RNA sequence: UCCCGUCGCAUAUGCGGGUCAUCAUAUGCACCUCCCUGUUGGACUUGGCCCGGGCAUCUGCCCGGGUCUUUUUU
Numbered sequence: 001u002c003c004c005g006u007c008g009c010a011u012a013u014g015c016g017g018g019u020c021a022u023c024a025u026a027u028g029c030a031c032c033u034c035c036c037u038g039u040u041g042g043a044c045u046u047g048g049c050c051c052g053g054g055c056a057u058c059u060g061c062c063c064g065g066g067u068c069u070u071u072u073u074u
Base pairs, nucleotide, nucleotide: 008029009028010027011026012025013024014023047068048067049066051064052063053062054061055060
Dot-bracket structure: .......(((((((........))))))).................(((.(((((....))))).)))......
This 74-nucleotide RNA sequence from Marivita hallyeonensis belongs to the Rfam family "Singlet oxygen resistance RNA X". From the family's description: SorX (RSs2461)like SorY is a singlet oxygen induced sRNA that counteracts oxidative stress by targeting mRNA for a transporter in Rhodobacter. The pairing is the family consensus, mapped onto this sequence. The family has 8 seed sequences and 528 matches in Rfam 15.1. Taxonomically the source falls in Marivita (Bacteria, Pseudomonadati, Pseudomonadota, Alphaproteobacteria).